Rfam assigns this 98-nucleotide sequence from Aquarana catesbeiana to the family "Small nucleolar RNA U6-53/MBII-28". A reference for the family is Huttenhofer et al. (2001), "RNomics: an experimental approach that identifies 201 candidates for novel, small, non-messenger RNAs in mouse", EMBO J. Rfam links the family to the GO terms nucleolus and RNA processing. Lineage of the source: Eukaryota > Eumetazoa > Vertebrata > Ranoidea > Aquarana. The pairing is the family consensus, mapped onto this sequence.

[Rfam]
RNA sequence: UGCCAAUGAUGAGUUGCCAUGCUAAUACCGACACAGCAGCCAGGAACCUAUUGUUUCUGUGCUGGCAGUGGCUGAGUGUAGCCAACUUACUGAGGCAG
Numbered sequence: 001u002g003c004c005a006a007u008g009a010u011g012a013g014u015u016g017c018c019a020u021g022c023u024a025a026u027a028c029c030g031a032c033a034c035a036g037c038a039g040c041c042a043g044g045a046a047c048c049u050a051u052u053g054u055u056u057c058u059g060u061g062c063u064g065g066c067a068g069u070g071g072c073u074g075a076g077u078g079u080a081g082c083c084a085a086c087u088u089a090c091u092g093a094g095g096c097a098g
Base pairs, nucleotide, nucleotide: 001097002096003095004094041059042058043057044056045055
Dot-bracket structure: ((((....................................(((((.........)))))..................................)))).